[Rfam]
RNA: MicX Vibrio cholerae sRNA
RNA sequence: AGAAUAACUAGAAAAGGGCGACCAUAUGGUCGCCCUUAUAUUUAGCAUCGAUAUUACACUUUUGGUUUGGCCGCCGAUCAGUAAUAUCCUGCUUCUAUUGGCGUUACGCAUAGCUGGCUGUUAGCUUAGUUCCUUACGAUUCAAUCACUAACAGUUUUUGUAACCAUAACCUGAGUCUUGACUCAGGUUUUUUUAU
Numbered sequence: 001a002g003a004a005u006a007a008c009u010a011g012a013a014a015a016g017g018g019c020g021a022c023c024a025u026a027u028g029g030u031c032g033c034c035c036u037u038a039u040a041u042u043u044a045g046c047a048u049c050g051a052u053a054u055u056a057c058a059c060u061u062u063u064g065g066u067u068u069g070g071c072c073g074c075c076g077a078u079c080a081g082u083a084a085u086a087u088c089c090u091g092c093u094u095c096u097a098u099u100g101g102c103g104u105u106a107c108g109c110a111u112a113g114c115u116g117g118c119u120g121u122u123a124g125c126u127u128a129g130u131u132c133c134u135u136a137c138g139a140u141u142c143a144a145u146c147a148c149u150a151a152c153a154g155u156u157u158u159u160g161u162a163a164c165c166a167u168a169a170c171c172u173g174a175g176u177c178u179u180g181a182c183u184c185a186g187g188u189u190u191u192u193u194u195a196u
Stems, first nucleotide, its partner, number of pairs: 016035008044094001050088008062077005103164006116156009168189009